Annotation: Shown here is a 177-nucleotide RNA, a member of the family "RT-16 RNA". The family's consensus secondary structure is taken from published work. The sequence is in the family's curated seed alignment.
RNA sequence: CCCUAGAUCCAUAUUAAAAAAUCUUGGGCUACAUGCAUAUUUACUAGCACAUUAUUUGAAUUUAUUUUAAGUUAUGAAAUACAACAGCAAUGGUUAGUAAUAAUGAUAGAACCUUGGGGAAGUUUUUGAAUGAAAGUCAGAGUUGUGGUGACUGAAACAGCAAGUAUGCUACUAGUG
Numbered sequence: 001c002c003c004u005a006g007a008u009c010c011a012u013a014u015u016a017a018a019a020a021a022u023c024u025u026g027g028g029c030u031a032c033a034u035g036c037a038u039a040u041u042u043a044c045u046a047g048c049a050c051a052u053u054a055u056u057u058g059a060a061u062u063u064a065u066u067u068u069a070a071g072u073u074a075u076g077a078a079a080u081a082c083a084a085c086a087g088c089a090a091u092g093g094u095u096a097g098u099a100a101u102a103a104u105g106a107u108a109g110a111a112c113c114u115u116g117g118g119g120a121a122g123u124u125u126u127u128g129a130a131u132g133a134a135a136g137u138c139a140g141a142g143u144u145g146u147g148g149u150g151a152c153u154g155a156a157a158c159a160g161c162a163a164g165u166a167u168g169c170u171a172c173u174a175g176u177g
Stems, first nucleotide, its partner, number of pairs: 001028003005024004035169008044160001052155003056151002084146005091139005100131002